[Rfam]
RNA: Molybdenum/Tungsten riboswitch aptamer (Moco RNA motif)
Organism: Aminomonas paucivorans
RNA sequence: CUUGGUUUCAACCUCCGAGCCCCUCUUCCUAAGGGCAUCGCCUAAGGAAUCGGGCCAUCGGGCGUGCCUGGAAACGGGACCGCCUCCCGCUUGGAAAGGGGGUUCCGGUGUGCCGUU
Numbered sequence: 001c002u003u004g005g006u007u008u009c010a011a012c013c014u015c016c017g018a019g020c021c022c023c024u025c026u027u028c029c030u031a032a033g034g035g036c037a038u039c040g041c042c043u044a045a046g047g048a049a050u051c052g053g054g055c056c057a058u059c060g061g062g063c064g065u066g067c068c069u070g071g072a073a074a075c076g077g078g079a080c081c082g083c084c085u086c087c088c089g090c091u092u093g094g095a096a097a098g099g100g101g102g103u104u105c106c107g108g109u110g111u112g113c114c115g116u117u
Base pairs, nucleotide, nucleotide: 006108011103012102013101014100015099016098019055020054021053022052026049027048028047029046033043034042035041036040060085061084062083063082064081067078068077069076070075086094087093
Dot-bracket structure: .....(....((((((..((((...((((...((((...))))..))))..))))....(((((..((((....))))..)))))((.....))...))))))....).........